[Rfam]
RNA sequence: CAAAUGGAGAGUUUGAUCCUGGCUCAGGAUGAACGCUGGCGGCGUGCCUAAUACAUGCAAGUCGAACGAAGUUCGAAACUAGCUUGCUAGAUUCGAAACUUAGUGGCGAACGGGUGAGUAAUACAUAAGCAACCUGCCUCUAUGCCUGGGAUAACAGAUGGAAACGUCUGCUAAUACCGGAUACGUUAAUCGAAGACAUCUUCGAUUAAUUAAAGUUGGGAUACAACACAAAGAGAUGGGCUUAUGGCGCAUUAGUUAGUUGGUGAGGUAACGGCUCACCAAGACGAUGAUGCGUAGCCGACCUGAGAGGGUGACCGGCCACACUGGGACUGAGACACGGCCCAGACUCCUACGGGAGGCAGCAGUAGGGAAUUUUCGGCAAUGGGGGAAACCCUGACCGAGCAACGCCGCGUGAGUGAAGAAGGCCUUCGGGUUGUAAAGCUCUGUUGUAAGGGAAGAACAAGUAUGAGAGGGAAUGCUCGUACUAUGACGGUACCUUACCAGAAAGCCACGGCUAACUACGUGCCAGCAGCCGCGGUAAUACGUAGGUGGCGAGCGUUAUCCGGAAUUAUUG
Numbered sequence: 001c002a003a004a005u006g007g008a009g010a011g012u013u014u015g016a017u018c019c020u021g022g023c024u025c026a027g028g029a030u031g032a033a034c035g036c037u038g039g040c041g042g043c044g045u046g047c048c049u050a051a052u053a054c055a056u057g058c059a060a061g062u063c064g065a066a067c068g069a070a071g072u073u074c075g076a077a078a079c080u081a082g083c084u085u086g087c088u089a090g091a092u093u094c095g096a097a098a099c100u101u102a103g104u105g106g107c108g109a110a111c112g113g114g115u116g117a118g119u120a121a122u123a124c125a126u127a128a129g130c131a132a133c134c135u136g137c138c139u140c141u142a143u144g145c146c147u148g149g150g151a152u153a154a155c156a157g158a159u160g161g162a163a164a165c166g167u168c169u170g171c172u173a174a175u176a177c178c179g180g181a182u183a184c185g186u187u188a189a190u191c192g193a194a195g196a197c198a199u200c201u202u203c204g205a206u207u208a209a210u211u212a213a214a215g216u217u218g219g220g221a222u223a224c225a226a227c228a229c230a231a232a233g234a235g236a237u238g239g240g241c242u243u244a245u246g247g248c249g250c251a252u253u254a255g256u257u258a259g260u261u262g263g264u265g266a267g268g269u270a271a272c273g274g275c276u277c278a279c280c281a282a283g284a285c286g287a288u289g290a291u292g293c294g295u296a297g298c299c300g301a302c303c304u305g306a307g308a309g310g311g312u313g314a315c316c317g318g319c320c321a322c323a324c325u326g327g328g329a330c331u332g333a334g335a336c337a338c339g340g341c342c343c344a345g346a347c348u349c350c351u352a353c354g355g356g357a358g359g360c361a362g363c364a365g366u367a368g369g370g371a372a373u374u375u376u377c378g379g380c381a382a383u384g385g386g387g388g389a390a391a392c393c394c395u396g397a398c399c400g401a402g403c404a405a406c407g408c409c410g411c412g413u414g415a416g417u418g419a420a421g422a423a424g425g426c427c428u429u430c431g432g433g434u435u436g437u438a439a440a441g442c443u444c445u446g447u448u449g450u451a452a453g454g455g456a457a458g459a460a461c462a463a464g465u466a467u468g469a470g471a472g473g474g475a476a477u478g479c480u481c482g483u484a485c486u487a488u489g490a491c492g493g494u495a496c497c498u499u500a501c502c503a504g505a506a507a508g509c510c511a512c513g514g515c516u517a518a519c520u521a522c523g524u525g526c527c528a529g530c531a532g533c534c535g536c537g538g539u540a541a542u543a544c545g546u547a548g549g550u551g552g553c554g555a556g557c558g559u560u561a562u563c564c565g566g567a568a569u570u571a572u573u574g
Stems, first nucleotide, its partner, number of pairs: 009025005027564004032560006039411006045404002047369001052367003056364003061107003066104002069100001076093002079090004114322003124246007133239002138235004143230002146180004155170006186209010215227003248294003255285003260282008297319004301312004324345005347358004375401001377400003383396005414444004424435004448505001449501006458491001464485006508553005519548005529536002